A member of the RNA family "Enterovirus cis-acting replication element" from Enterovirus coxsackiepol, 61 nucleotides long.
The family's consensus secondary structure is taken from published work.
About the family: The first step in the replication of the plus-stranded poliovirus RNA is the synthesis of a complementary minus strand. This process is initiated by the covalent attachment of UMP to the terminal protein VPg, yielding VPgpU and VPgpUpU. A small RNA hairpin in the coding region of protein 2C as the site in PV1(M) RNA that is used as the primary template for the in vitro uridylylation.
[Rfam]
RNA sequence: CAUUAACAACUAUAUCCAGUUCAAGAGCAAACACCGUAUUGAACCAGUAUGUAUGUUGAUA
Numbered sequence: 001c002a003u004u005a006a007c008a009a010c011u012a013u014a015u016c017c018a019g020u021u022c023a024a025g026a027g028c029a030a031a032c033a034c035c036g037u038a039u040u041g042a043a044c045c046a047g048u049a050u051g052u053a054u055g056u057u058g059a060u061a
Base pairs, nucleotide, nucleotide: 013051014050015049017047019044020043021042022041023040024039028036